[Rfam]
RNA: Iron response element I
Nucleotides: 034
Base pairs, nucleotide, nucleotide: 001034003032005031007030008029010028012027013026014025015024016023017021
Number, partner (000 for none) and nucleotide at each position: 001034c002000c003032g004000u005031u006000u007030c008029c009000u010028g011000c012027u013026u014025c015024a016023a017021c018000g019000g020000u021017g022000u023016u024015u025014g026013g027012a028010u029008g030007g031005a032003c033000a034001g